Rfam assigns this 127-nucleotide RNA sequence from Eleutherodactylus coqui to the family "Small nucleolar RNA SNORA65". The base pairs follow the family's consensus structure, which was predicted with RNAalifold.
[Rfam]
RNA sequence: CCCGCCACUAUGCUGGUCCACCUGUGACCGGGUAUAAUCCAGUGGUGAGCUGAGAGUAAAGCCCCAUCUUAGGAAACAGGGUCUUUCUCCAUGUGAUUGACUCUGUGCCGAAAGACUGGGUACACAA
Numbered sequence: 001c002c003c004g005c006c007a008c009u010a011u012g013c014u015g016g017u018c019c020a021c022c023u024g025u026g027a028c029c030g031g032g033u034a035u036a037a038u039c040c041a042g043u044g045g046u047g048a049g050c051u052g053a054g055a056g057u058a059a060a061g062c063c064c065c066a067u068c069u070u071a072g073g074a075a076a077c078a079g080g081g082u083c084u085u086u087c088u089c090c091a092u093g094u095g096a097u098u099g100a101c102u103c104u105g106u107g108c109c110g111a112a113a114g115a116c117u118g119g120g121u122a123c124a125c126a127a
Stems, first nucleotide, its partner, number of pairs: 005045005018032002021026001063120004067115004072109002077105006086096002
Overview:
Rfam classes the family as an H/ACA-box small nucleolar RNA. For this family Rfam cites "RNomics: an experimental approach that identifies 201 candidates for novel, small, non-messenger RNAs in mouse" (Huttenhofer et al., EMBO J, 2001). Taxonomically the source falls in Eleutherodactylus (Eukaryota, Opisthokonta, Batrachia, Hyloidea).